Rfam assigns this 189-nucleotide RNA from Aspergillus ellipticus to the family "Small nucleolar RNA snR80".
[Rfam]
RNA sequence: CAACCUUUGCAACACUCUGGCCCGUACUGUCUUUUCCCGCCUUCGGGCUUGGAAUCGACCUGUUACAACGUGGUAUAGGCUUAUUUUAAGCAAAGAAGAGCAACUUUGACCCGCUACUCACCGCGGUAUCUUUGAGGGGAGCUUCUUGCUCCUUUCUGUGGAUACAGUGGUCCAUUUAACGGUCGACAU
Numbered sequence: 001c002a003a004c005c006u007u008u009g010c011a012a013c014a015c016u017c018u019g020g021c022c023c024g025u026a027c028u029g030u031c032u033u034u035u036c037c038c039g040c041c042u043u044c045g046g047g048c049u050u051g052g053a054a055u056c057g058a059c060c061u062g063u064u065a066c067a068a069c070g071u072g073g074u075a076u077a078g079g080c081u082u083a084u085u086u087u088a089a090g091c092a093a094a095g096a097a098g099a100g101c102a103a104c105u106u107u108g109a110c111c112c113g114c115u116a117c118u119c120a121c122c123g124c125g126g127u128a129u130c131u132u133u134g135a136g137g138g139g140a141g142c143u144u145c146u147u148g149c150u151c152c153u154u155u156c157u158g159u160g161g162a163u164a165c166a167g168u169g170g171u172c173c174a175u176u177u178a179a180c181g182g183u184c185g186a187c188a189u
Base pairs, nucleotide, nucleotide: 007093008092009091019081020080021079022078025075026074027073028072030058031057034054035053036052108184109183110182111181121170122169123168124167126165127164128163129162130161131160
The source organism's lineage runs through Eukaryota, Eurotiomycetes, Eurotiales, Aspergillus and Aspergillus ellipticus. Rfam links the family to the GO terms nucleolus and RNA processing. It is annotated as an H/ACA-box small nucleolar RNA. A search with the family's covariance model found it, with a score of 45 bits. On this family, see Schattner et al., Nucleic Acids Res 2004: "Genome-wide searching for pseudouridylation guide snoRNAs: analysis of the Saccharomyces cerevisiae genome".